[Rfam]
Shown here is a 120-nucleotide RNA from Micrococcus luteus, a member of the family "SAM (S-adenosyl methionine) riboswitch aptamer".
A reference for the family is Weinberg et al. (2008), "The aptamer core of SAM-IV riboswitches mimics the ligand-binding site of SAM-I riboswitches", RNA.
The organism belongs to Micrococcus luteus, within Bacteria.
About the family: SAM-IV is a mRNA element that regulates gene expression via direct sensing of S-adenosylmethionine (SAM or AdoMet). SAM-IV riboswitches share conserved nucleotide positions with the previously described SAM-I riboswitches sequence analysis and molecular recognition experiments suggest that SAM-I and SAM-IV riboswitches share similar ligand binding sites, but have different scaffolds.
RNA sequence: AAUCACGAGUCCCCGUCAUUCACGGCCCUGGCCGGCGGGACGGCAACCCUCUCACGCAGUAGUGGGGUGCUCCAGGUGAUGAUUCGGCCCCUCGGACACCCCGGCGGGCAAGUACCGCGU
Numbered sequence: 001a002a003u004c005a006c007g008a009g010u011c012c013c014c015g016u017c018a019u020u021c022a023c024g025g026c027c028c029u030g031g032c033c034g035g036c037g038g039g040a041c042g043g044c045a046a047c048c049c050u051c052u053c054a055c056g057c058a059g060u061a062g063u064g065g066g067g068u069g070c071u072c073c074a075g076g077u078g079a080u081g082a083u084u085c086g087g088c089c090c091c092u093c094g095g096a097c098a099c100c101c102c103g104g105c106g107g108g109c110a111a112g113u114a115c116c117g118c119g120u
Stems, first nucleotide, its partner, number of pairs: 001084004009041001012039005024033002042071003047067003051062002087109004092104004